chrB-a RNA: a 77-nucleotide sequence.
Rfam's curators put it in the seed alignment.
The family's RNA type in Rfam is cis-regulatory element.
The family has 163 seed sequences and 347 matches in Rfam 15.1.
[Rfam]
RNA sequence: UUCAUGGGGAAUGCGAUCUCCCCACUAGGCGACAUGCUGAAGAAUCGCGUCCCACUCAAGUGCAAGUACGCAUCAUA
Dot-bracket structure: ....((((((........))))))......................((((.(.............).))))......
Numbered sequence: 001u002u003c004a005u006g007g008g009g010a011a012u013g014c015g016a017u018c019u020c021c022c023c024a025c026u027a028g029g030c031g032a033c034a035u036g037c038u039g040a041a042g043a044a045u046c047g048c049g050u051c052c053c054a055c056u057c058a059a060g061u062g063c064a065a066g067u068a069c070g071c072a073u074c075a076u077a
Stems, first nucleotide, its partner, number of pairs: 005024006047071004052066001